Glycine riboswitch aptamer: a 91-nucleotide sequence from Clostridium polyendosporum. The organism belongs to Clostridium, within Bacteria. It scores 66 bits against the family's covariance model.
RNA sequence: GGACGAGCCUCUGGAGAGACUCAAAAAGAGCACCGAAGGGGAAAGCCAAAAAAUUGGUGAAACUCUCAGGUAAAAGGACAGGGGAUUUUAA
Numbered sequence: 001g002g003a004c005g006a007g008c009c010u011c012u013g014g015a016g017a018g019a020c021u022c023a024a025a026a027a028g029a030g031c032a033c034c035g036a037a038g039g040g041g042a043a044a045g046c047c048a049a050a051a052a053a054u055u056g057g058u059g060a061a062a063c064u065c066u067c068a069g070g071u072a073a074a075a076g077g078a079c080a081g082g083g084g085a086u087u088u089u090a091a
Stems, first nucleotide, its partner, number of pairs: 006086001008084006020030003032071003035067002039065003045058004